Rfam assigns this 117-nucleotide RNA sequence from Cognatundibacterium luofuense to the family "ALIL pseudoknot". Lineage of the source: Bacteria > Pseudomonadati > Burkholderiales > Oxalobacteraceae > Cognatundibacterium. The base pairs follow the family's consensus structure, which is taken from published work. A reference for the family is Mazauric et al. (2008), "Apical loop-internal loop RNA pseudoknots: a new type of stimulator of -1 translational frameshifting in bacteria", J Biol Chem.

Nucleotides: 117
Base pairs, nucleotide, nucleotide: 016032017031018030019029020028078117079116080115081114082113089112090111092109093108094107095106096105097104098103
Number, partner (000 for none) and nucleotide at each position: 001000u002000g003000c004000u005000u006000u007000u008000u009000u010000c011000g012000c013000g014000c015000a016032g017031g018030c019029g020028g021000a022000g023000c024000u025000c026000g027000a028020c029019c030018g031017c032016c033000a034000c035000c036000g037000a038000a039000a040000g041000u042000a043000g044000u045000c046000a047000g048000c049000g050000c051000a052000u053000u054000u055000a056000u057000u058000g059000a060000u061000c062000a063000g064000c065000a066000c067000c068000g069000u070000g071000c072000a073000a074000u075000g076000u077000a078117c079116g080115g081114g082113g083000c084000c085000g086000a087000g088000c089112c090111g091000a092109u093108u094107u095106g096105c097104a098103a099000a100000g101000c102000a103098u104097u105096g106095c107094a108093a109092g110000u111090c112089g113082c114081c115080c116079c117078g